[Rfam]
RNA sequence: GUUGACAGCCCAGAGGCCAUAGCAGUAGCACUCAUGGCACGACCCUGUCAGGUUCCAACAAAUCUGCAAAUUUUGCU
Numbered sequence: 001g002u003u004g005a006c007a008g009c010c011c012a013g014a015g016g017c018c019a020u021a022g023c024a025g026u027a028g029c030a031c032u033c034a035u036g037g038c039a040c041g042a043c044c045c046u047g048u049c050a051g052g053u054u055c056c057a058a059c060a061a062a063u064c065u066g067c068a069a070a071u072u073u074u075g076c077u
Stems, first nucleotide, its partner, number of pairs: 013045001015044002018041001021077005027071001028040001049066006

Rfam assigns this 77-nucleotide RNA sequence from Alligator sinensis to the family "Mammalian CPEB3 ribozyme". Pairs were carried over by alignment from the consensus structure, which is taken from published work. It scores 36 bits against the family's covariance model. NCBI's taxonomy places the organism under Eukaryota, Eumetazoa, Amniota, Alligatoridae, Alligator.